[Rfam]
Nucleotides: 091
Stems, first nucleotide, its partner, number of pairs: 001090003004086003010080005017073005026064004032059006040051001
Number, partner (000 for none) and nucleotide at each position: 001090g002089g003088u004086a005085u006084c007000g008000g009000u010080g011079c012078c013077a014076g015000c016000u017073a018072c019071c020070c021069g022000u023000a024000a025000u026064u027063u028062c029061u030000c031000g032059g033058a034057c035056a036055g037054u038000u039000a040051g041000u042000g043000u044000g045000c046000c047000g048000a049000u050000u051040c052000g053000c054037a055036c056035u057034g058033u059032c060000a061029a062028g063027a064026a065000a066000u067000a068000a069021c070020g071019g072018g073017u074000u075000c076014c077013u078012g079011g080010c081000u082000a083000a084006g085005a086004u087000a088003a089002c090001c091000a
The record is a 91-nucleotide RNA from Pristionchus pacificus, which matches "mir-2237 microRNA precursor family" in Rfam. Lineage of the source: Eukaryota > Nematoda > Diplogasteromorpha > Neodiplogasteridae > Pristionchus. The base pairs follow the family's consensus structure, which was predicted with RNAalifold.